[Rfam]
RNA sequence: UACACAAACGGAAAUGGUGUCUUCCGAAUGAACCGCCCUAAAAAGCUGAUGACGCCUGCAAAUAG
Number, nucleotide and partner (000 for none) at each position: 001u000002a000003c000004a000005c000006a000007a000008a000009c000010g025011g024012a023013a022014a000015u000016g056017g055018u054019g053020u052021c051022u013023u012024c011025c010026g000027a000028a000029u000030g000031a000032a000033c000034c000035g046036c045037c000038c000039u000040a000041a000042a000043a000044a000045g036046c035047u000048g000049a000050u000051g021052a020053c019054g018055c017056c016057u000058g000059c000060a000061a000062a000063u000064a000065g000

The record is a 65-nucleotide RNA sequence from Pararcticibacter amylolyticus, which matches "Fluoride riboswitch aptamer (crcB RNA motif)" in Rfam. The family's consensus secondary structure is taken from published work. Lineage of the source: Bacteria > Pseudomonadati > Bacteroidota > Sphingobacteriaceae > Pararcticibacter.